[Rfam]
RNA sequence: GUUACAGUUACGGUGACAUGGUGCCUGGGACCAUAGCUGGCAAGAUUGUGGGAGGUGUCUGCUCACUGUCCGGAGUGCUUGUCAUCGCUUUACCUGUGCCCGUCAUUGUGUCCAAC
Number, nucleotide and partner (000 for none) at each position: 001g116002u115003u000004a000005c000006a000007g112008u000009u110010a109011c108012g107013g106014u000015g104016a103017c102018a000019u000020g099021g000022u000023g097024c096025c000026u000027g000028g000029g000030a000031c000032c000033a000034u000035a000036g000037c000038u000039g079040g078041c077042a076043a000044g000045a000046u000047u000048g000049u000050g000051g000052g064053a063054g000055g000056u000057g000058u000059c000060u000061g000062c000063u053064c052065a000066c000067u000068g000069u000070c000071c000072g000073g000074a000075g000076u042077g041078c040079u039080u000081g000082u000083c000084a000085u000086c000087g000088c000089u000090u000091u000092a000093c000094c000095u000096g024097u023098g000099c020100c000101c000102g017103u016104c015105a000106u013107u012108g011109u010110g009111u000112c007113c000114a000115a002116c001
Potassium channel RNA editing signal: a 116-nucleotide RNA sequence from Galleria mellonella. A search with the family's covariance model found it, with a score of 80 bits. About the family: This family represents a group of sequences related to the human potassium channel Kv1.1 hairpin element which directs the efficient modification of an adenosine to inosine by an adenosine deaminase acting on RNA (ADAR). Pairs were carried over by alignment from the consensus structure, which is taken from published work. The source organism's lineage runs through Eukaryota, Arthropoda, Eumetabola, Galleriinae and Galleria.